[Rfam]
RNA: Purine riboswitch aptamer
Organism: Brevibacillus sp. SYP-B805
RNA sequence: AACAUUUUCCAUCCAUCUAUUCGUAUAUCCUCAAUAAUAAGGGUUGAGGGUCUCUACAAGGAACCGUAACAUUCCUGGCUACGAAUAGGGUCUUCACCCUA
Numbered sequence: 001a002a003c004a005u006u007u008u009c010c011a012u013c014c015a016u017c018u019a020u021u022c023g024u025a026u027a028u029c030c031u032c033a034a035u036a037a038u039a040a041g042g043g044u045u046g047a048g049g050g051u052c053u054c055u056a057c058a059a060g061g062a063a064c065c066g067u068a069a070c071a072u073u074c075c076u077g078g079c080u081a082c083g084a085a086u087a088g089g090g091u092c093u094u095c096a097c098c099c100u101a
Base pairs, nucleotide, nucleotide: 018087019086020085021084022083023082024081025080029049030048031047032046033045034044035043059076060075061074062073063072